[Rfam]
Shown here is a 72-nucleotide sequence from Manacus vitellinus, a member of the family "tRNA". The source organism's lineage runs through Eukaryota, Vertebrata, Euteleostomi, Theropoda and Manacus. Rfam links the family to the GO term triplet codon-amino acid adaptor activity. Transfer RNA (tRNA) molecules are approximately 80 nucleotides in length. It is annotated as a transfer RNA. It scores 50 bits against the family's covariance model.
RNA sequence: CCCCUGGUGGUCUAGUGGUUAGGAUGUGGCACUCUCACUGCCGUGGCCCGGGUUUGAUUCCCGGUCAGGAGA
Number, nucleotide and partner (000 for none) at each position: 001c071002c000003c069004c068005u067006g066007g065008u000009g000010g025011u024012c023013u022014a000015g000016u000017g000018g000019u000020u000021a000022g013023g012024a011025u010026g000027u043028g042029g041030c040031a039032c000033u000034c000035u000036c000037a000038c000039u031040g030041c029042c028043g027044u000045g000046g000047c000048c064049c063050g062051g061052g060053u000054u000055u000056g000057a000058u000059u000060c052061c051062c050063g049064g048065u007066c006067a005068g004069g003070a000071g001072a000